[Rfam]
RNA sequence: CCAUUGAGAAAUCUUUGAAUCAAGUAAUGUAAAUGAUUCAAAGGUUUCUCAAUG
Numbered sequence: 001c002c003a004u005u006g007a008g009a010a011a012u013c014u015u016u017g018a019a020u021c022a023a024g025u026a027a028u029g030u031a032a033a034u035g036a037u038u039c040a041a042a043g044g045u046u047u048c049u050c051a052a053u054g
Stems, first nucleotide, its partner, number of pairs: 004052019